RNA sequence: UAAAGCCGUCGCGACUGGCGUUGGGUGGUGAACCACCAGGGAGCGGCACGGAUGAAGACCACGGAUCGUACGCCUGGGCCGAGGGU
Number, nucleotide and partner (000 for none) at each position: 001u000002a000003a000004a053005g000006c051007c050008g047009u046010c045011g044012c043013g000014a000015c040016u039017g074018g073019c072020g071021u070022u000023g000024g000025g036026u035027g034028g033029u000030g000031a000032a000033c028034c027035a026036c025037c000038a000039g016040g015041g000042a000043g012044c011045g010046g009047c008048a000049c000050g007051g006052a000053u004054g000055a000056a000057g000058a000059c000060c000061a000062c081063g080064g079065a000066u078067c077068g000069u000070a021071c020072g019073c018074c017075u000076g000077g067078g066079c064080c063081g062082a000083g000084g000085g000086u000
The family of this 86-nucleotide sequence from Arthrobacter sp. SW1 is "ZMP/ZTP riboswitch aptamer (pfl RNA motif)".